[Rfam]
This 145-nucleotide sequence belongs to the Rfam family "RT-14 RNA".
Pairs were carried over by alignment from the consensus structure, which is taken from published work.
RNA sequence: CUCUAAUAUUAUUCUCGAUUAUAUAUUUUACGGAAUAUAUACAAUGAAGUAUUAGAUAUUAAAGAGAUUUAUUCCUUCCUAUAUAUAGGUAAAUAUGUAUCAGCAAAAUAUUUUAUGGUAGGAAUAACGAAGUUCAGUAUUUUGC
Numbered sequence: 001c002u003c004u005a006a007u008a009u010u011a012u013u014c015u016c017g018a019u020u021a022u023a024u025a026u027u028u029u030a031c032g033g034a035a036u037a038u039a040u041a042c043a044a045u046g047a048a049g050u051a052u053u054a055g056a057u058a059u060u061a062a063a064g065a066g067a068u069u070u071a072u073u074c075c076u077u078c079c080u081a082u083a084u085a086u087a088g089g090u091a092a093a094u095a096u097g098u099a100u101c102a103g104c105a106a107a108a109u110a111u112u113u114u115a116u117g118g119u120a121g122g123a124a125u126a127a128c129g130a131a132g133u134u135c136a137g138u139a140u141u142u143u144g145c
Stems, first nucleotide, its partner, number of pairs: 003055007013047002020041009078089004103145010115133001121128001